This 94-nucleotide sequence from Streptomyces sulphureus belongs to the Rfam family "che1 RNA".
The source organism's lineage runs through Bacteria, Bacillati, Kitasatosporales, Streptomycetaceae and Streptomyces sulphureus.
It is one of the family's seed sequences.
RNA sequence: CGGACAGGGGGGUCUCUGCCCAGGCAGGGCCUGUCCGUACAAAGCAGGUUGCGCGUGAGCGUGGCCAGUGGUUGUCGCUCGGGGGUGAUCGCCG
Numbered sequence: 001c002g003g004a005c006a007g008g009g010g011g012g013u014c015u016c017u018g019c020c021c022a023g024g025c026a027g028g029g030c031c032u033g034u035c036c037g038u039a040c041a042a043a044g045c046a047g048g049u050u051g052c053g054c055g056u057g058a059g060c061g062u063g064g065c066c067a068g069u070g071g072u073u074g075u076c077g078c079u080c081g082g083g084g085g086u087g088a089u090c091g092c093c094g
Stems, first nucleotide, its partner, number of pairs: 001037008014029006047066008